[Rfam]
RNA: Small nucleolar RNA snR80
RNA sequence: AAUACUUCCCAAACACUCUGGCCCUUACCCCCUUUCCCAUCGAGGAUCGGUUCAACCUGUGGUAUAGGCCUAUUUUUGGAGGAAGAAGAUUGAUUUUGUCCGAUUACUCACCGAGGUAUCUUGUAUCCUUUCGAGGGUAGUGGAUAUUUUGGUCCAUAUCUUUUGGCCAACAA
Numbered sequence: 001a002a003u004a005c006u007u008c009c010c011a012a013a014c015a016c017u018c019u020g021g022c023c024c025u026u027a028c029c030c031c032c033u034u035u036c037c038c039a040u041c042g043a044g045g046a047u048c049g050g051u052u053c054a055a056c057c058u059g060u061g062g063u064a065u066a067g068g069c070c071u072a073u074u075u076u077u078g079g080a081g082g083a084a085g086a087a088g089a090u091u092g093a094u095u096u097u098g099u100c101c102g103a104u105u106a107c108u109c110a111c112c113g114a115g116g117u118a119u120c121u122u123g124u125a126u127c128c129u130u131u132c133g134a135g136g137g138u139a140g141u142g143g144a145u146a147u148u149u150u151g152g153u154c155c156a157u158a159u160c161u162u163u164u165g166g167c168c169a170a171c172a173a
Base pairs, nucleotide, nucleotide: 007083008082009081020070021069022068023067026064027063028062029061098168100166101165111152112151113150114149116147117146118145119144120143121142